[Rfam]
RNA sequence: UUGAACAAGUAGAAGCACCCGCUUCUCGCCAUGUGACAAAGUUGCCUGGCAGAUACAGUUAUCCGGAAGGAUUGCAAGUGUUGAAGUGGGUGAAGAUUAGGUUCUUUAUCCACUUUUCUUCUUGAUU
Numbered sequence: 001u002u003g004a005a006c007a008a009g010u011a012g013a014a015g016c017a018c019c020c021g022c023u024u025c026u027c028g029c030c031a032u033g034u035g036a037c038a039a040a041g042u043u044g045c046c047u048g049g050c051a052g053a054u055a056c057a058g059u060u061a062u063c064c065g066g067a068a069g070g071a072u073u074g075c076a077a078g079u080g081u082u083g084a085a086g087u088g089g090g091u092g093a094a095g096a097u098u099a100g101g102u103u104c105u106u107u108a109u110c111c112a113c114u115u116u117u118c119u120u121c122u123u124g125a126u127u
Base pairs, nucleotide, nucleotide: 011026012025013024014023015022016021028050029049030048033045034044035043036042037041085114086113087112088111089110090109091108092107093106094105095104096103
Dot-bracket structure: ..........((((((....)))))).(((..(((((...)))))..)))..................................((((((((((((......)))))))))))).............

Rfam assigns this 127-nucleotide RNA sequence from Leuconostoc lactis to the family "Ribosomal protein L20 leader". The match comes from Rfam's covariance-model search (62 bits). Rfam's curators write: This family is a putative r-protein leader autoregulatory structure found in B. subtilis and other low-GC Gram-positive bacteria. The family's RNA type in Rfam is cis-regulatory leader. The literature on the family includes a 1994 paper in Prog Nucleic Acid Res Mol Biol by Zengel and Lindahl, "Diverse mechanisms for regulating ribosomal protein synthesis in Escherichia coli".